The family of this 46-nucleotide RNA sequence from Pipistrellus kuhlii is "Histone 3' UTR stem-loop". Rfam classes the family as a cis-regulatory element. It scores 35 bits against the family's covariance model. The source organism's lineage runs through Eukaryota, Opisthokonta, Laurasiatheria, Chiroptera and Pipistrellus. Rfam 15.1 lists 44,596 matches to the family in 976 species. The family's consensus secondary structure is taken from published work. The mRNAs of metazoan histone genes lack a poly-A tail. 3' end processing occurs at a site between a highly conserved stem-loop (modelled by this family) and a purine rich region around 20 nts downstream (the histone downstream element, or HDE). The stem-loop is bound by a 31 kDa stem-loop binding protein (SLBP - also termed the histone hairpin binding protein, or HBP).
RNA sequence: CCAAAGGCUCUUUUAAGAGCCACCUCCAACUCUUUAGAAAAGGGCU
Dot-bracket structure: .....((((((....)))))).........................
Numbered sequence: 001c002c003a004a005a006g007g008c009u010c011u012u013u014u015a016a017g018a019g020c021c022a023c024c025u026c027c028a029a030c031u032c033u034u035u036a037g038a039a040a041a042g043g044g045c046u
Stems, first nucleotide, its partner, number of pairs: 006021006